The record is a 156-nucleotide sequence from Luteimonas gilva, which matches "FMN riboswitch aptamer (RFN element)" in Rfam.

RNA sequence: GAACGUCUUCAGGGCGGGGUGCGAUUCCCCACCGGCGGUAGGCGCGGCAGUCCGCGCGAGCCCGCGAGCGCUUCCCUGGUCGUCGCACCGCGGAAGGUCAGCAGACCCGGUCCAAUGCCGGGGCCGACGGUAUAGUCCGGAUGAAAGAAGACGGCA
Numbered sequence: 001g002a003a004c005g006u007c008u009u010c011a012g013g014g015c016g017g018g019g020u021g022c023g024a025u026u027c028c029c030c031a032c033c034g035g036c037g038g039u040a041g042g043c044g045c046g047g048c049a050g051u052c053c054g055c056g057c058g059a060g061c062c063c064g065c066g067a068g069c070g071c072u073u074c075c076c077u078g079g080u081c082g083u084c085g086c087a088c089c090g091c092g093g094a095a096g097g098u099c100a101g102c103a104g105a106c107c108c109g110g111u112c113c114a115a116u117g118c119c120g121g122g123g124c125c126g127a128c129g130g131u132a133u134a135g136u137c138c139g140g141a142u143g144a145a146a147g148a149a150g151a152c153g154g155c156a
Stems, first nucleotide, its partner, number of pairs: 004153007017029003031136002033126002035065004060124002068102002106122005128139003